[Rfam]
RNA sequence: GCCUUGAACAAUUUUGAAAUCAUCUCAUUUCCUUUAGCUGGUUUGGGAUUUGAAUAUGAUUCCUUUGUUAUAUUUGUGACCACAAGAGUUGAUCCUCUCACCAUUGAUGAAUUAUAUGGGCAUCUAUUAGCUCAUGAAU
Numbered sequence: 001g002c003c004u005u006g007a008a009c010a011a012u013u014u015u016g017a018a019a020u021c022a023u024c025u026c027a028u029u030u031c032c033u034u035u036a037g038c039u040g041g042u043u044u045g046g047g048a049u050u051u052g053a054a055u056a057u058g059a060u061u062c063c064u065u066u067g068u069u070a071u072a073u074u075u076g077u078g079a080c081c082a083c084a085a086g087a088g089u090u091g092a093u094c095c096u097c098u099c100a101c102c103a104u105u106g107a108u109g110a111a112u113u114a115u116a117u118g119g120g121c122a123u124c125u126a127u128u129a130g131c132u133c134a135u136g137a138a139u
Base pairs, nucleotide, nucleotide: 004138005137007135088108089107090106091105092104093103